RNA sequence: CGACCUCAGAUCAGGCAAGACGACCCGCUGAAUUUAAGCAUAUUAGUGGAGGAAAAGAAACUAACCAGGAUUCCCUCAGUAACGGCGAGUGAACAGGGAAGAGCCCAGCACCGAACCCCCGCCUGGCCGGGCGCGGGAAAUGUGGCGUACAGAAGACCCGUAUCCCCGCCGGCGCCGAUCGGAGGCCCAAGUCCUUGUGACGGAGGCUCCAUCCCGCAGACGGUGUGAGGCCGGUGGCGGCCUCCGUCGCGCCCGGGCCGGGUCUUCUCGGAGUCGGGUUGUUUGCGAAUGCAGCCAAAAGCCGGGUGGUAAACUCCAUCUAAGGCUAAAUACCGGCACGAGACCGAUAGCCAAAAAGUAUCGUGAGGGAAAGUUGAAAAGAACUUUGAAGAGAGUUCAAGAGGGCGUGAAACCGUCAAGAGGUAAA
Numbered sequence: 001c002g003a004c005c006u007c008a009g010a011u012c013a014g015g016c017a018a019g020a021c022g023a024c025c026c027g028c029u030g031a032a033u034u035u036a037a038g039c040a041u042a043u044u045a046g047u048g049g050a051g052g053a054a055a056a057g058a059a060a061c062u063a064a065c066c067a068g069g070a071u072u073c074c075c076u077c078a079g080u081a082a083c084g085g086c087g088a089g090u091g092a093a094c095a096g097g098g099a100a101g102a103g104c105c106c107a108g109c110a111c112c113g114a115a116c117c118c119c120c121g122c123c124u125g126g127c128c129g130g131g132c133g134c135g136g137g138a139a140a141u142g143u144g145g146c147g148u149a150c151a152g153a154a155g156a157c158c159c160g161u162a163u164c165c166c167c168g169c170c171g172g173c174g175c176c177g178a179u180c181g182g183a184g185g186c187c188c189a190a191g192u193c194c195u196u197g198u199g200a201c202g203g204a205g206g207c208u209c210c211a212u213c214c215c216g217c218a219g220a221c222g223g224u225g226u227g228a229g230g231c232c233g234g235u236g237g238c239g240g241c242c243u244c245c246g247u248c249g250c251g252c253c254c255g256g257g258c259c260g261g262g263u264c265u266u267c268u269c270g271g272a273g274u275c276g277g278g279u280u281g282u283u284u285g286c287g288a289a290u291g292c293a294g295c296c297a298a299a300a301g302c303c304g305g306g307u308g309g310u311a312a313a314c315u316c317c318a319u320c321u322a323a324g325g326c327u328a329a330a331u332a333c334c335g336g337c338a339c340g341a342g343a344c345c346g347a348u349a350g351c352c353a354a355a356a357a358g359u360a361u362c363g364u365g366a367g368g369g370a371a372a373g374u375u376g377a378a379a380a381g382a383a384c385u386u387u388g389a390a391g392a393g394a395g396u397u398c399a400a401g402a403g404g405g406c407g408u409g410a411a412a413c414c415g416u417c418a419a420g421a422g423g424u425a426a427a
Stems, first nucleotide, its partner, number of pairs: 024051001025049005035042002061068002072099005082090002102327004109147001111145003115141001117137003120133005152267006159260002171253004176249001181245007191207001193206004215219001222232002277296006304321005361368002384393003
Source information
A member of the RNA family "Eukaryotic large subunit ribosomal RNA" from Acipenser ruthenus, 427 nucleotides of a longer RNA. It scores 2433 bits against the family's covariance model. The source organism's lineage runs through Eukaryota, Bilateria, Chordata, Acipenseridae and Acipenser.